[Rfam]
RNA sequence: CCCACCUACAAAGGCGUGUCUGUGAUUCCCAGUCUUUGGGCACGUAAGAACUGGAGGCAAAGAAAUGUGGACUUGGAAAAGUCUGGGGCAGCUUGCUUCCUGCAGGCUCAAGAUUAACUAUUCCACAUUU
Numbered sequence: 001c002c003c004a005c006c007u008a009c010a011a012a013g014g015c016g017u018g019u020c021u022g023u024g025a026u027u028c029c030c031a032g033u034c035u036u037u038g039g040g041c042a043c044g045u046a047a048g049a050a051c052u053g054g055a056g057g058c059a060a061a062g063a064a065a066u067g068u069g070g071a072c073u074u075g076g077a078a079a080a081g082u083c084u085g086g087g088g089c090a091g092c093u094u095g096c097u098u099c100c101u102g103c104a105g106g107c108u109c110a111a112g113a114u115u116a117a118c119u120a121u122u123c124c125a126c127a128u129u130u
Stems, first nucleotide, its partner, number of pairs: 002057002005054002015044007024030001069123003073120001090108007